The record is a 148-nucleotide RNA sequence from Panthera leo, which matches "U4 spliceosomal RNA" in Rfam. For this family Rfam cites "Crystal structure of the spliceosomal 15.5kD protein bound to a U4 snRNA fragment" (Vidovic et al., Mol Cell, 2000). Rfam classes the family as a spliceosomal small nuclear RNA. About the family: U4 small nuclear RNA (U4 snRNA) is a component of the major U2-dependent spliceosome. The base pairs follow the family's consensus structure, which is taken from published work. The family has 177 seed sequences and 32,178 matches in Rfam 15.1. Lineage of the source: Eukaryota > Metazoa > Teleostomi > Euteleostomi > Panthera.

RNA sequence: AGCUUUGCGCAGUGUGGCAUUAUCAUGGCCAAUGAGGUUUACCCAAGGUACGAUUAUUGCUAAUUGAAAAAAAUAAUAAUAAAGUGGUGAAUUUUAUCUUAGAAUUUAAAAAAAAAAAUUAAAAGAACUUUGACUUUGGCAUCAGUUA
Numbered sequence: 001a002g003c004u005u006u007g008c009g010c011a012g013u014g015u016g017g018c019a020u021u022a023u024c025a026u027g028g029c030c031a032a033u034g035a036g037g038u039u040u041a042c043c044c045a046a047g048g049u050a051c052g053a054u055u056a057u058u059g060c061u062a063a064u065u066g067a068a069a070a071a072a073a074u075a076a077u078a079a080u081a082a083a084g085u086g087g088u089g090a091a092u093u094u095u096a097u098c099u100u101a102g103a104a105u106u107u108a109a110a111a112a113a114a115a116a117a118a119u120u121a122a123a124a125g126a127a128c129u130u131u132g133a134c135u136u137u138g139g140c141a142u143c144a145g146u147u148a
Base pairs, nucleotide, nucleotide: 022054023053024052026050028049029048030047036044037043085124090120091119092118093117094116095115097113137148138147139146140145